Shown here is a 79-nucleotide RNA from Cohnella lupini, a member of the family "ZMP/ZTP riboswitch aptamer (pfl RNA motif)". Gene Ontology terms of the family: one-carbon metabolic process and regulation of purine nucleotide biosynthetic process. Pairs were carried over by alignment from the consensus structure, which is taken from published work.
[Rfam]
RNA sequence: UUGACUGUGUGUGACUGGCGGAGCAUGGGUAACCAUGAGGGAGCACAUGGAUUACAAGCCGUACGCCUGGGCAGAGGUA
Numbered sequence: 001u002u003g004a005c006u007g008u009g010u011g012u013g014a015c016u017g018g019c020g021g022a023g024c025a026u027g028g029g030u031a032a033c034c035a036u037g038a039g040g041g042a043g044c045a046c047a048u049g050g051a052u053u054a055c056a057a058g059c060c061g062u063a064c065g066c067c068u069g070g071g072c073a074g075a076g077g078u079a
Stems, first nucleotide, its partner, number of pairs: 003052001005050008015040002017067004025036004058072003